A member of the RNA family "ASpks TB sRNA" from Streptomyces sp. NRRL WC-3618, 75 nucleotides long. The family's RNA type in Rfam is antisense RNA. The base pairs follow the family's consensus structure, which is taken from published work.
[Rfam]
RNA sequence: CUUCACCGAUCCCAGCCACAGCGGCCGGUCGGCAGCCCGCUCCUGCCCGUAGGUCGCGAGCAGCGCCUGCGCUUC
Numbered sequence: 001c002u003u004c005a006c007c008g009a010u011c012c013c014a015g016c017c018a019c020a021g022c023g024g025c026c027g028g029u030c031g032g033c034a035g036c037c038c039g040c041u042c043c044u045g046c047c048c049g050u051a052g053g054u055c056g057c058g059a060g061c062a063g064c065g066c067c068u069g070c071g072c073u074u075c
Stems, first nucleotide, its partner, number of pairs: 015025003032070002038065002043060002047056001049054001